[Rfam]
RNA sequence: GGGAAUGUUUUGGUUUCGACAGGAUAAAAAGAUUAUUAUUGGCAAGUAAGCGGGAGCUUUGAAAUCCAACUUAAAAAUAAUCGGAAACGAUAAUUACGCAUUAGCUGCCUAAGAUAGCGGCUCAUCUCUUUUGGGAACGCCAUUUUUCCAUUAGAUGAUGUCAUUUUUAAUGGCUUACUCAAAUGUAUGAUUAUGUCAUUUGAGGAAAUCUCAUAAUCUCGCCUUUAGACUUUUGUCUGUUUAAUAUCUAACGGUUAAAGCGUUAAAUAGACUAAACUUGUAGAAGAUAAUAAGGACUUUCUAUUUUGGACACGGGUUCGAUUCCCGUCAUUUCCACCA
Numbered sequence: 001g002g003g004a005a006u007g008u009u010u011u012g013g014u015u016u017c018g019a020c021a022g023g024a025u026a027a028a029a030a031g032a033u034u035a036u037u038a039u040u041g042g043c044a045a046g047u048a049a050g051c052g053g054g055a056g057c058u059u060u061g062a063a064a065u066c067c068a069a070c071u072u073a074a075a076a077a078u079a080a081u082c083g084g085a086a087a088c089g090a091u092a093a094u095u096a097c098g099c100a101u102u103a104g105c106u107g108c109c110u111a112a113g114a115u116a117g118c119g120g121c122u123c124a125u126c127u128c129u130u131u132u133g134g135g136a137a138c139g140c141c142a143u144u145u146u147u148c149c150a151u152u153a154g155a156u157g158a159u160g161u162c163a164u165u166u167u168u169a170a171u172g173g174c175u176u177a178c179u180c181a182a183a184u185g186u187a188u189g190a191u192u193a194u195g196u197c198a199u200u201u202g203a204g205g206a207a208a209u210c211u212c213a214u215a216a217u218c219u220c221g222c223c224u225u226u227a228g229a230c231u232u233u234u235g236u237c238u239g240u241u242u243a244a245u246a247u248c249u250a251a252c253g254g255u256u257a258a259a260g261c262g263u264u265a266a267a268u269a270g271a272c273u274a275a276a277c278u279u280g281u282a283g284a285a286g287a288u289a290a291u292a293a294g295g296a297c298u299u300u301c302u303a304u305u306u307u308g309g310a311c312a313c314g315g316g317u318u319c320g321a322u323u324c325c326c327g328u329c330a331u332u333u334c335c336a337c338c339a
Base pairs, nucleotide, nucleotide: 001335002334003333004332005331006330007329020308021307022306023305024304025303026302028300033293034292035291036290037289038288039287040286043280044279045278046277047276049060050059052057054072055071056070103122104121105120106119107118108117123160124159125158126157129153132150134149135148136147137146139175141173144170145169178204179203180202181201182200183199184198185197189219192216221255222254223253225251226250227249228248229247231244232243235272236271237270238269240267241266312328313327314326315325316324

Shown here is a 339-nucleotide sequence from Leptotrichia shahii, a member of the family "transfer-messenger RNA". Its family is annotated with RNA catabolic process in the Gene Ontology. Bacterial tmRNA, also known as 10Sa RNA or SsrA, is named for its dual tRNA and mRNA-like properties.